The record is a 76-nucleotide RNA from Methylocystis bryophila, which matches "Makes More Granules Regulator RNA (mmgR)" in Rfam. Taxonomically the source falls in Methylocystis (Bacteria, Pseudomonadati, Pseudomonadota, Hyphomicrobiales). It scores 70 bits against the family's covariance model. By type it is a small RNA.

RNA sequence: CUUCGAUGCCCUCCUUGGGCGUUUCCUCCCUAGACUCGGGCCACCGCCUCGUCGGUGGCCCCUUUUUUUGUCGCGA
Numbered sequence: 001c002u003u004c005g006a007u008g009c010c011c012u013c014c015u016u017g018g019g020c021g022u023u024u025c026c027u028c029c030c031u032a033g034a035c036u037c038g039g040g041c042c043a044c045c046g047c048c049u050c051g052u053c054g055g056u057g058g059c060c061c062c063u064u065u066u067u068u069u070g071u072c073g074c075g076a
Stems, first nucleotide, its partner, number of pairs: 008020004038061009